[Rfam]
RNA sequence: AUUUGAAAAGGGCAAAGCUGGCGAAAACCAGUGACGCAAAACCACCGGUCUAAGGGAAUUUAUUCCUACGAUAGCGGGGCUGCCAAA
Numbered sequence: 001a002u003u004u005g006a007a008a009a010g011g012g013c014a015a016a017g018c019u020g021g022c023g024a025a026a027a028c029c030a031g032u033g034a035c036g037c038a039a040a041a042c043c044a045c046c047g048g049u050c051u052a053a054g055g056g057a058a059u060u061u062a063u064u065c066c067u068a069c070g071a072u073a074g075c076g077g078g079g080c081u082g083c084c085a086a087a
Stems, first nucleotide, its partner, number of pairs: 012037002017032005040081001042079002045077003048072003055066004
RNA: c-di-GMP-I riboswitch aptamer
Organism: Echinimonas agarilytica